[Rfam]
The family of this 89-nucleotide RNA from Centaurea solstitialis is "Small nucleolar RNA R16". The literature on the family includes a 2002 paper in Curr Biol by Marker et al., "Experimental RNomics: identification of 140 candidates for small non-messenger RNAs in the plant Arabidopsis thaliana". Rfam links the family to the GO terms nucleolus and RNA processing. By type it is a C/D-box small nucleolar RNA.
RNA sequence: AAUGGCAGAUGAUGAAAUUUCAGUUUCUAUGCUUAACACACUGAUUAAACCGUGGUGACUACAAACUCCGCUUAUUAUCUGAUGCCAUU
Numbered sequence: 001a002a003u004g005g006c007a008g009a010u011g012a013u014g015a016a017a018u019u020u021c022a023g024u025u026u027c028u029a030u031g032c033u034u035a036a037c038a039c040a041c042u043g044a045u046u047a048a049a050c051c052g053u054g055g056u057g058a059c060u061a062c063a064a065a066c067u068c069c070g071c072u073u074a075u076u077a078u079c080u081g082a083u084g085c086c087a088u089u
Base pairs, nucleotide, nucleotide: 003087004086005085006084007083